[Rfam]
Nucleotides: 140
Stems, first nucleotide, its partner, number of pairs: 003059002006056002014051001016046003022038005068133001070131004090113006
Number, partner (000 for none) and nucleotide at each position: 001000g002000u003059c004058u005000c006056c007055u008000c009000a010000u011000u012000g013000a014051g015000c016046u017045c018044c019000u020000u021000u022038u023037u024036g025035u026034c027000u028000g029000u030000u031000g032000g033000u034026g035025g036024c037023a038022g039000u040000u041000u042000a043000u044018g045017g046016g047000u048000u049000c050000a051014c052000a053000c054000a055007a056006g057000a058004a059003g060000g061000a062000g063000a064000g065000a066000a067000u068133u069000g070131a071130c072129a073128g074000a075000a076000c077000u078000a079000g080000c081000a082000a083000u084000g085000u086000u087000u088000a089000c090113c091112u092111u093110c094109u095108g096000u097000c098000u099000c100000u101000g102000a103000c104000u105000u106000u107000a108095c109094a110093g111092a112091g113090g114000g115000a116000c117000a118000u119000a120000u121000g122000g123000c124000u125000g126000u127000u128073u129072u130071g131070u132000g133068a134000g135000a136000c137000a138000u139000u140000c